Shown here is a 157-nucleotide RNA from Secundilactobacillus mixtipabuli, a member of the family "FMN riboswitch aptamer (RFN element)". Gene Ontology term of the family: FMN binding.
[Rfam]
RNA sequence: AGAUUUCUUCGGGGCAGGGUGUAAUUCCCGACCGAUGGUGACAGUUAGAUUGAACAAGCAAUCGCUACAUGGCUGAAGUCCGUGACCCACGUUAUUCGUGGUUGACCCAGUGAGAGUCUGGGACCGACAGUUAAAGUCUGGAUGGGAGAAGAAAAGA
Numbered sequence: 001a002g003a004u005u006u007c008u009u010c011g012g013g014g015c016a017g018g019g020u021g022u023a024a025u026u027c028c029c030g031a032c033c034g035a036u037g038g039u040g041a042c043a044g045u046u047a048g049a050u051u052g053a054a055c056a057a058g059c060a061a062u063c064g065c066u067a068c069a070u071g072g073c074u075g076a077a078g079u080c081c082g083u084g085a086c087c088c089a090c091g092u093u094a095u096u097c098g099u100g101g102u103u104g105a106c107c108c109a110g111u112g113a114g115a116g117u118c119u120g121g122g123a124c125c126g127a128c129a130g131u132u133a134a135a136g137u138c139u140g141g142a143u144g145g146g147a148g149a150a151g152a153a154a155a156g157a
Stems, first nucleotide, its partner, number of pairs: 004154007017029003031137002033126002035083004087101002106122005128140003